[Rfam]
RNA sequence: CCUGUGGAGUGUUAACAAACCGUUGUAGGGAGUAAGCGCCGAAGCGGGAUACGAUGAACCAGGAA
Number, nucleotide and partner (000 for none) at each position: 001c063002c062003u061004g060005u000006g000007g000008a000009g052010u051011g050012u049013u048014a000015a000016c000017a000018a000019a000020c047021c046022g045023u000024u000025g000026u000027a000028g040029g039030g000031a000032g037033u000034a000035a000036g000037c032038g000039c029040c028041g000042a000043a000044g000045c022046g021047g020048g013049a012050u011051a010052c009053g000054a000055u000056g000057a000058a000059c000060c004061a003062g002063g001064a000065a000
RNA: RAGATH-18 RNA
Organism: Melghirimyces algeriensis